The family of this 95-nucleotide sequence from Limosilactobacillus coleohominis is "SAM-III riboswitch aptamer (SMK box)". It scores 46 bits against the family's covariance model. The family's consensus secondary structure is taken from published work.

RNA sequence: UUAUGAAGCAAAUUCCCGAUGGGAGGAGACGGUCGUCUUCGCUGCCUUGUAACCGCAAAAGACACUUUUAAGUUUAUGGGGGAAUUAAUACAAUG
Numbered sequence: 001u002u003a004u005g006a007a008g009c010a011a012a013u014u015c016c017c018g019a020u021g022g023g024a025g026g027a028g029a030c031g032g033u034c035g036u037c038u039u040c041g042c043u044g045c046c047u048u049g050u051a052a053c054c055g056c057a058a059a060a061g062a063c064a065c066u067u068u069u070a071a072g073u074u075u076a077u078g079g080g081g082g083a084a085u086u087a088a089u090a091c092a093a094u095g
Stems, first nucleotide, its partner, number of pairs: 013084005021047003025040005053079002